[Rfam]
RNA sequence: GGGGGCGCCUUGGCUUCGACGGGGACGCGGACGCUGUAUGGGGCAUGUCGAGGUGCAGUCACCUCGUAAAUCCGCUGCAAACAAUUAAACGCCAACAACAAGCGUUUCGCUCUCGCUGCUUAAUGCGAGAUGCUGCACCGGUUUGUCUCUGGGCCGGGUCGAGCAAUCGACAGCAGUAUCAUUUGACAGAGUCUAGGAUGUGCGGGCGUCACCGACGCGCUUCCGAAAUCAAGGUGACUGGCUGGAUGCCGGCCCGCCGCUCGGCAGGGCAUCCGGUGAGAUUCAAAUCAUGCGGCUAAGCAUGUAGACCCAACAGAAAAAGGUUUCCGGACGCGGGUUCAACUCCCGCCGCCUCCACCA
Numbered sequence: 001g002g003g004g005g006c007g008c009c010u011u012g013g014c015u016u017c018g019a020c021g022g023g024g025a026c027g028c029g030g031a032c033g034c035u036g037u038a039u040g041g042g043g044c045a046u047g048u049c050g051a052g053g054u055g056c057a058g059u060c061a062c063c064u065c066g067u068a069a070a071u072c073c074g075c076u077g078c079a080a081a082c083a084a085u086u087a088a089a090c091g092c093c094a095a096c097a098a099c100a101a102g103c104g105u106u107u108c109g110c111u112c113u114c115g116c117u118g119c120u121u122a123a124u125g126c127g128a129g130a131u132g133c134u135g136c137a138c139c140g141g142u143u144u145g146u147c148u149c150u151g152g153g154c155c156g157g158g159u160c161g162a163g164c165a166a167u168c169g170a171c172a173g174c175a176g177u178a179u180c181a182u183u184u185g186a187c188a189g190a191g192u193c194u195a196g197g198a199u200g201u202g203c204g205g206g207c208g209u210c211a212c213c214g215a216c217g218c219g220c221u222u223c224c225g226a227a228a229u230c231a232a233g234g235u236g237a238c239u240g241g242c243u244g245g246a247u248g249c250c251g252g253c254c255c256g257c258c259g260c261u262c263g264g265c266a267g268g269g270c271a272u273c274c275g276g277u278g279a280g281a282u283u284c285a286a287a288u289c290a291u292g293c294g295g296c297u298a299a300g301c302a303u304g305u306a307g308a309c310c311c312a313a314c315a316g317a318a319a320a321a322g323g324u325u326u327c328c329g330g331a332c333g334c335g336g337g338u339u340c341a342a343c344u345c346c347c348g349c350c351g352c353c354u355c356c357a358c359c360a
Stems, first nucleotide, its partner, number of pairs: 001356007020329007034316004039312004044304005049066005054079006111130005119125001131178006138157002142153002145192002148189001196224003200220005208238005241277010252265003256296004333349005
The family of this 360-nucleotide RNA from Sutterella wadsworthensis is "transfer-messenger RNA".
Rfam links the family to the GO term RNA catabolic process.
Rfam describes the family as follows. Bacterial tmRNA, also known as 10Sa RNA or SsrA, is named for its dual tRNA and mRNA-like properties. Its role is to liberate the mRNA from a stalled ribosome. To accomplish this part of the tmRNA is used as a reading frame that ends in a translation stop signal.
The organism belongs to Sutterella wadsworthensis, within Bacteria.
Rfam classes the family as a non-coding RNA gene.